[Rfam]
RNA sequence: CUAUAUAUACCCUGUAGAUCCGAAUUUGUGUACAUGUAGCAUUAGCCGCAAAUUCGUGUCUUAGGGAGUAUGUAGG
Numbered sequence: 001c002u003a004u005a006u007a008u009a010c011c012c013u014g015u016a017g018a019u020c021c022g023a024a025u026u027u028g029u030g031u032a033c034a035u036g037u038a039g040c041a042u043u044a045g046c047c048g049c050a051a052a053u054u055c056g057u058g059u060c061u062u063a064g065g066g067a068g069u070a071u072g073u074a075g076g
Stems, first nucleotide, its partner, number of pairs: 002074006010066003016061004021056010

Rfam assigns this 76-nucleotide RNA from Cynoglossus semilaevis to the family "mir-10 microRNA precursor family". The base pairs follow the family's consensus structure, which was predicted with PFOLD. The match comes from Rfam's covariance-model search (64 bits).